[Rfam]
RNA sequence: UGCGAUGAGUCGAGGAGAUCGCGCAACUACGGUUGUAUUCACAAGAUGUGAUUAAGCGAUAUUUUCGAAGGGGACACAUUAUGCGGACGUAAUUCGCGUGUCUGAUAUGUUGGUGAUGUGAACAC
Numbered sequence: 001u002g003c004g005a006u007g008a009g010u011c012g013a014g015g016a017g018a019u020c021g022c023g024c025a026a027c028u029a030c031g032g033u034u035g036u037a038u039u040c041a042c043a044a045g046a047u048g049u050g051a052u053u054a055a056g057c058g059a060u061a062u063u064u065u066c067g068a069a070g071g072g073g074a075c076a077c078a079u080u081a082u083g084c085g086g087a088c089g090u091a092a093u094u095c096g097c098g099u100g101u102c103u104g105a106u107a108u109g110u111u112g113g114u115g116a117u118g119u120g121a122a123c124a125c
Stems, first nucleotide, its partner, number of pairs: 018060005023038001024035004039051004073102005083097005113125003117122001
Description
A member of the RNA family "Enterococcus sRNA 68 (Lacto-3 RNA)" from Apilactobacillus kunkeei, 125 nucleotides long. The literature on the family includes a 2015 paper in RNA by Innocenti et al., "Whole-genome mapping of 5' RNA ends in bacteria by tagged sequencing: a comprehensive view in Enterococcus faecalis". Pairs were carried over by alignment from the consensus structure, which is taken from published work. By type it is a small RNA.